[Rfam]
This 92-nucleotide sequence from Butyricicoccus sp. TM10-16AC belongs to the Rfam family "c-di-GMP-I riboswitch aptamer". The base pairs follow the family's consensus structure, which is taken from published work. The organism belongs to Butyricicoccus, within Bacteria. About the family: GEMM was predicted in a large-scale screen for bacterial structured RNA regulatory elements.

RNA sequence: UACAGACAAAGGCACAGUCGGUGAAAACCGGUGUCGCAAAGCCAGAUGGGCCUAAACGGAGUUUUUUCUCCGCAUGGCAGCCGGUUGCCAAA
Numbered sequence: 001u002a003c004a005g006a007c008a009a010a011g012g013c014a015c016a017g018u019c020g021g022u023g024a025a026a027a028c029c030g031g032u033g034u035c036g037c038a039a040a041g042c043c044a045g046a047u048g049g050g051c052c053u054a055a056a057c058g059g060a061g062u063u064u065u066u067u068c069u070c071c072g073c074a075u076g077g078c079a080g081c082c083g084g085u086u087g088c089c090a091a092a
Stems, first nucleotide, its partner, number of pairs: 012037002017032006040086004048082002050078003057072004